[Rfam]
RNA: TPP riboswitch aptamer (THI element)
RNA sequence: UAUAACUACUAGGGGAGCCAUAUGGCUGAGAUGUUGAUAUUCAGACCCUUAUAAACCUGAUUUGGUUAGUACCAACGUAGGAAAGUAGUCAUAAUCAAAU
Dot-bracket structure: .....(((((((((..(((....)))......(........)...))))......((((..((((......))))..))))..)))))............